[Rfam]
RNA sequence: UACAACUAAUGAUUUGACAGUUGGAAUGAAAGCCGUCAUGUUGGCUGAAACAACUGGUCUGAGACUCCUAUAUGCGUUUGAUUAUAACAGUAAUCAAGGGUGUAAAGCUAGGUAAAGUCGGCAGAACGAUACCUAAGUAAGUCGAAAUGCUUAUAUGGUAAAGGAUAUGCCGGGACGCUAGUAC
Numbered sequence: 001u002a003c004a005a006c007u008a009a010u011g012a013u014u015u016g017a018c019a020g021u022u023g024g025a026a027u028g029a030a031a032g033c034c035g036u037c038a039u040g041u042u043g044g045c046u047g048a049a050a051c052a053a054c055u056g057g058u059c060u061g062a063g064a065c066u067c068c069u070a071u072a073u074g075c076g077u078u079u080g081a082u083u084a085u086a087a088c089a090g091u092a093a094u095c096a097a098g099g100g101u102g103u104a105a106a107g108c109u110a111g112g113u114a115a116a117g118u119c120g121g122c123a124g125a126a127c128g129a130u131a132c133c134u135a136a137g138u139a140a141g142u143c144g145a146a147a148u149g150c151u152u153a154u155a156u157g158g159u160a161a162a163g164g165a166u167a168u169g170c171c172g173g174g175a176c177g178c179u180a181g182u183a184c
Stems, first nucleotide, its partner, number of pairs: 018056006031046005057176004067112004071104005077098008119172005127163001130160003133144001135142001148157002